[Rfam]
RNA sequence: UAAUGUUCUCAGGGCGGGGCGAAAUUCCCCACCGGUGGUAGGUUUGCUGGAUGUAACGUUAAGUGACACCAAGCAAACAAGCCCACGAGCGCUCGAUUCGUCGAGGUCAGCAGAUCUGGUCAAACUCCAGAGCCGACGGUUACAGUCCGGAUGAAAGAGAAUAGCG
Numbered sequence: 001u002a003a004u005g006u007u008c009u010c011a012g013g014g015c016g017g018g019g020c021g022a023a024a025u026u027c028c029c030c031a032c033c034g035g036u037g038g039u040a041g042g043u044u045u046g047c048u049g050g051a052u053g054u055a056a057c058g059u060u061a062a063g064u065g066a067c068a069c070c071a072a073g074c075a076a077a078c079a080a081g082c083c084c085a086c087g088a089g090c091g092c093u094c095g096a097u098u099c100g101u102c103g104a105g106g107u108c109a110g111c112a113g114a115u116c117u118g119g120u121c122a123a124a125c126u127c128c129a130g131a132g133c134c135g136a137c138g139g140u141u142a143c144a145g146u147c148c149g150g151a152u153g154a155a156a157g158a159g160a161a162u163a164g165c166g
Stems, first nucleotide, its partner, number of pairs: 004163007017029003031146002033135002035086004089111002115131005137149003

Shown here is a 166-nucleotide RNA sequence from Vibrio xiamenensis, a member of the family "FMN riboswitch aptamer (RFN element)". The source organism's lineage runs through Bacteria, Pseudomonadota, Gammaproteobacteria, Vibrionaceae and Vibrio. A search with the family's covariance model found it, with a score of 105 bits.